[Rfam]
RNA sequence: UAUUAGUAAGGGCAAACCUAUUUAAAAAUAGGGACGCAAAGCCUAGGGUCUAAGGUGCUGAAUAAGCGCUAUGAUAGCCUGGUUGCCGCA
Numbered sequence: 001u002a003u004u005a006g007u008a009a010g011g012g013c014a015a016a017c018c019u020a021u022u023u024a025a026a027a028a029u030a031g032g033g034a035c036g037c038a039a040a041g042c043c044u045a046g047g048g049u050c051u052a053a054g055g056u057g058c059u060g061a062a063u064a065a066g067c068g069c070u071a072u073g074a075u076a077g078c079c080u081g082g083u084u085g086c087c088g089c090a
Stems, first nucleotide, its partner, number of pairs: 012037002017032006040084004045080003048075003055069004
Rfam assigns this 90-nucleotide sequence from Desulfofarcimen acetoxidans to the family "c-di-GMP-I riboswitch aptamer".
Pairs were carried over by alignment from the consensus structure, which is taken from published work.